[Rfam]
RNA sequence: AUAGAAUCAGCACUCCGAGCUGUAUGACCUAAAGUUAUCCAUGGUCUGGCAGUCUGAACCUAUGGGUUCACGGGGUAGUGAAAGAAAUUCCACUACCUCCCACUUUUGGAAAGGAGGCGCUUCAUGAGUUU
Numbered sequence: 001a002u003a004g005a006a007u008c009a010g011c012a013c014u015c016c017g018a019g020c021u022g023u024a025u026g027a028c029c030u031a032a033a034g035u036u037a038u039c040c041a042u043g044g045u046c047u048g049g050c051a052g053u054c055u056g057a058a059c060c061u062a063u064g065g066g067u068u069c070a071c072g073g074g075g076u077a078g079u080g081a082a083a084g085a086a087a088u089u090c091c092a093c094u095a096c097c098u099c100c101c102a103c104u105u106u107u108g109g110a111a112a113g114g115a116g117g118c119g120c121u122u123c124a125u126g127a128g129u130u131u
Stems, first nucleotide, its partner, number of pairs: 004125001013116004019053005026046004034039001055070005073098008082089002099109002
Dot-bracket structure: ...(........((((..(((((..((((....(....)...))))..))))).(((((......)))))..((((((((.((....)).))))))))((.......))...))))........)......
This 131-nucleotide sequence from Sporomusa malonica belongs to the Rfam family "Molybdenum/Tungsten riboswitch aptamer (Moco RNA motif)". Its family is annotated with tungstate binding, molybdenum ion binding and regulation of gene expression in the Gene Ontology. The base pairs follow the family's consensus structure, which is taken from published work.